[Rfam]
RNA sequence: AAAAGGGUAAGGGGUAGCCUCUCCUAGGCUUUGUCUAUAUUAUAACGAAGACAUAGCCUAACUGAGGUUAAUCCUAUUCCUUUAU
Numbered sequence: 001a002a003a004a005g006g007g008u009a010a011g012g013g014g015u016a017g018c019c020u021c022u023c024c025u026a027g028g029c030u031u032u033g034u035c036u037a038u039a040u041u042a043u044a045a046c047g048a049a050g051a052c053a054u055a056g057c058c059u060a061a062c063u064g065a066g067g068u069u070a071a072u073c074c075u076a077u078u079c080c081u082u083u084a085u
Base pairs, nucleotide, nucleotide: 012073013072015070016069017068018067019066020065027058028057029056030055032053033052034051035050036049
This 85-nucleotide RNA from Agrilus planipennis belongs to the Rfam family "mir-282 microRNA precursor family".
Gene Ontology terms of the family: miRNA-mediated post-transcriptional gene silencing and RISC complex.
It scores 59 bits against the family's covariance model.
The organism belongs to Agrilus, within Eukaryota.
The base pairs follow the family's consensus structure, which was predicted with RNAalifold.
For this family Rfam cites "Direct sequencing and expression analysis of a large number of miRNAs in Aedes aegypti and a multi-species survey of novel mosquito miRNAs" (Li et al., BMC Genomics, 2009).